[Rfam]
RNA sequence: GUAACUCACCAGACCAAGCCGCCGCACCCUAAAACGGCGGCAUCACUUCGACGAAGAAGGA
Numbered sequence: 001g002u003a004a005c006u007c008a009c010c011a012g013a014c015c016a017a018g019c020c021g022c023c024g025c026a027c028c029c030u031a032a033a034a035c036g037g038c039g040g041c042a043u044c045a046c047u048u049c050g051a052c053g054a055a056g057a058a059g060g061a
Base pairs, nucleotide, nucleotide: 018041019040020039021038022037023036024035